[Rfam]
RNA sequence: CGACAGUAUAAAUGCCUCCUCAACCCGAAUCGUUCGAGAUGGAGACUGGAUCUAAAUAGAUUCUUUAUCCUGAACUCACG
Numbered sequence: 001c002g003a004c005a006g007u008a009u010a011a012a013u014g015c016c017u018c019c020u021c022a023a024c025c026c027g028a029a030u031c032g033u034u035c036g037a038g039a040u041g042g043a044g045a046c047u048g049g050a051u052c053u054a055a056a057u058a059g060a061u062u063c064u065u066u067a068u069c070c071u072g073a074a075c076u077c078a079c080g
Stems, first nucleotide, its partner, number of pairs: 002018002006015003022051001024049002027046001030042005

The record is an 80-nucleotide RNA sequence from Legionella longbeachae, which matches "Legionella RNA 69" in Rfam.
On this family, see Weissenmayer et al., PLoS One 2011: "Sequencing illustrates the transcriptional response of Legionella pneumophila during infection and identifies seventy novel small non-coding RNAs".
NCBI's taxonomy places the organism under Bacteria, Gammaproteobacteria, Legionellales, Legionella, Legionella longbeachae.
The base pairs follow the family's consensus structure, which was predicted with RNAfold.